[Rfam]
RNA: serC leader
Organism: Rhodobacteraceae bacterium HTCC2150
RNA sequence: CGGUGGGACACCCUUCCCCAACGAAGGGCAUAUAUCUGUGAGGAUAACAUUU
Number, nucleotide and partner (000 for none) at each position: 001c000002g000003g000004u000005g000006g000007g000008a000009c000010a000011c028012c027013c026014u025015u024016c023017c000018c000019c000020a000021a000022c000023g016024a015025a014026g013027g012028g011029c000030a000031u000032a000033u046034a045035u044036c043037u042038g000039u000040g000041a000042g037043g036044a035045u034046a033047a000048c000049a000050u000051u000052u000